[Rfam]
RNA sequence: UGCGGCGGCCUCCUCAUUGUGCAUGCUGUGUGCGCUCCUGCGUCCCACACAGCGCCUGCAAUGUGGAGGCCGAGGCA
Number, nucleotide and partner (000 for none) at each position: 001u000002g000003c000004g000005g000006c000007g000008g000009c000010c000011u000012c066013c065014u000015c063016a062017u061018u060019g059020u058021g057022c000023a000024u054025g000026c052027u051028g050029u049030g048031u047032g000033c000034g000035c000036u000037c000038c000039u000040g000041c000042g000043u000044c000045c000046c000047a031048c030049a029050c028051a027052g026053c000054g024055c000056c000057u021058g020059c019060a018061a017062u016063g015064u000065g013066g012067a000068g000069g000070c000071c000072g000073a000074g000075g000076c000077a000

Shown here is a 77-nucleotide sequence from Takifugu flavidus, a member of the family "mir-460 microRNA precursor family". Pairs were carried over by alignment from the consensus structure, which was predicted with RNAalifold. Gene Ontology terms of the family: miRNA-mediated post-transcriptional gene silencing and RISC complex. NCBI's taxonomy places the organism under Eukaryota, Teleostei, Eupercaria, Tetraodontiformes, Takifugu. On this family, see Xu et al., FEBS Lett 2006: "Identification of microRNAs from different tissues of chicken embryo and adult chicken".